[Rfam]
The record is a 99-nucleotide sequence from Xylella fastidiosa, which matches "TPP riboswitch aptamer (THI element)" in Rfam.

RNA sequence: ACUUUGAAGCGGGGGUACCGUAGCCAAGCUGCGGUUGAGACACACCCUUCGAACCUGAUCCGGUUUACACCGGCGUAGGAAAGCUUCGUGGACCGCGCC
Numbered sequence: 001a002c003u004u005u006g007a008a009g010c011g012g013g014g015g016u017a018c019c020g021u022a023g024c025c026a027a028g029c030u031g032c033g034g035u036u037g038a039g040a041c042a043c044a045c046c047c048u049u050c051g052a053a054c055c056u057g058a059u060c061c062g063g064u065u066u067a068c069a070c071c072g073g074c075g076u077a078g079g080a081a082a083g084c085u086u087c088g089u090g091g092a093c094c095g096c097g098c099c
Stems, first nucleotide, its partner, number of pairs: 006087005011048004016042001017035007054079004060073004

A search with the family's covariance model found it, with a score of 64 bits.